Overview:
The family of this 70-nucleotide RNA sequence from Vicugna pacos is "Small nucleolar RNA U2-30". The match comes from Rfam's covariance-model search (88 bits). Its family is annotated with RNA processing and nucleolus in the Gene Ontology. Taxonomically the source falls in Vicugna (Eukaryota, Deuterostomia, Chordata, Tylopoda).
[Rfam]
RNA sequence: GAGUGAUGAUGAAAACGUUUUACUACUGACCUUUUUAACUAUGAAGUUUUCUACACUUGAUCUAAGCUCA
Numbered sequence: 001g002a003g004u005g006a007u008g009a010u011g012a013a014a015a016c017g018u019u020u021u022a023c024u025a026c027u028g029a030c031c032u033u034u035u036u037a038a039c040u041a042u043g044a045a046g047u048u049u050u051c052u053a054c055a056c057u058u059g060a061u062c063u064a065a066g067c068u069c070a
Base pairs, nucleotide, nucleotide: 001069002068003067004066013034014033015032017030018029019028